Record summary: Shown here is a 112-nucleotide RNA sequence from Maribrevibacterium harenarium, a member of the family "Guanidine-I riboswitch aptamer".

RNA sequence: AGAAUAGAACGCUAGGGUUCCGGUACUGUUUUCUUCGCCACAGUACGACUGGUCCGAGAGCAUUCGACCUUGCAGUGGCAAGGUUACACGGCGGGACAAAAGCCCGGGAGAC
Numbered sequence: 001a002g003a004a005u006a007g008a009a010c011g012c013u014a015g016g017g018u019u020c021c022g023g024u025a026c027u028g029u030u031u032u033c034u035u036c037g038c039c040a041c042a043g044u045a046c047g048a049c050u051g052g053u054c055c056g057a058g059a060g061c062a063u064u065c066g067a068c069c070u071u072g073c074a075g076u077g078g079c080a081a082g083g084u085u086a087c088a089c090g091g092c093g094g095g096a097c098a099a100a101a102g103c104c105c106g107g108g109a110g111a112c
Stems, first nucleotide, its partner, number of pairs: 007065003011061002015055002020052002022049001023046006066085008087107001089110001093105003